[Rfam]
Shown here is an 89-nucleotide RNA from Caenorhabditis remanei, a member of the family "mir-81 microRNA precursor family". Pairs were carried over by alignment from the consensus structure, which was predicted with RNAalifold. The family is grouped with related families in Rfam's "mir-81 clan". The literature on the family includes a 2001 paper in Science by Lau et al., "An abundant class of tiny RNAs with probable regulatory roles in Caenorhabditis elegans". It is one of the family's seed sequences. Its family is annotated with RISC complex and miRNA-mediated post-transcriptional gene silencing in the Gene Ontology.
RNA sequence: UCGUGGCCAGCAGUCGGUUUUCACCUUGAUCUGAGAGCUAAACAUAAUGCUUAUCUGAGAUCAUCGUGAAAGCUAGUUGCAGGUACACA
Numbered sequence: 001u002c003g004u005g006g007c008c009a010g011c012a013g014u015c016g017g018u019u020u021u022c023a024c025c026u027u028g029a030u031c032u033g034a035g036a037g038c039u040a041a042a043c044a045u046a047a048u049g050c051u052u053a054u055c056u057g058a059g060a061u062c063a064u065c066g067u068g069a070a071a072g073c074u075a076g077u078u079g080c081a082g083g084u085a086c087a088c089a
Stems, first nucleotide, its partner, number of pairs: 010080003016074009027063006034056003037050002